[Rfam]
RNA sequence: AUGUUCUUUCAUAUAAGCACUGUGUCAAAACUGCAGACACCAGGAUCUGGUCUUGGUUUUUGUAACAAUGUUAGCAGAGUACAUGCAAGAAGAAAAGUAACUGCACUAGACUGUAAAGACUUGGGUGGGCUUCUCUCUUAACGUCCAGUGUCCUUUGUCUUAAGAUUUGAUGCAAUGUGU
Numbered sequence: 001a002u003g004u005u006c007u008u009u010c011a012u013a014u015a016a017g018c019a020c021u022g023u024g025u026c027a028a029a030a031c032u033g034c035a036g037a038c039a040c041c042a043g044g045a046u047c048u049g050g051u052c053u054u055g056g057u058u059u060u061u062g063u064a065a066c067a068a069u070g071u072u073a074g075c076a077g078a079g080u081a082c083a084u085g086c087a088a089g090a091a092g093a094a095a096a097g098u099a100a101c102u103g104c105a106c107u108a109g110a111c112u113g114u115a116a117a118g119a120c121u122u123g124g125g126u127g128g129g130c131u132u133c134u135c136u137c138u139u140a141a142c143g144u145c146c147a148g149u150g151u152c153c154u155u156u157g158u159c160u161u162a163a164g165a166u167u168u169g170a171u172g173c174a175a176u177g178u179g180u
Stems, first nucleotide, its partner, number of pairs: 020079002023076003027072001030069001032067002036060002039057008102174004107169004124149001126147004
A member of the RNA family "Small nucleolar RNA SNORA81" from Suricata suricatta, 180 nucleotides long. Rfam 15.1 lists 1,161 matches to the family in 643 species. Rfam classes the family as an H/ACA-box small nucleolar RNA. On this family, see Gu et al., Nucleic Acids Res 2005: "A novel experimental approach for systematic identification of box H/ACA snoRNAs from eukaryotes".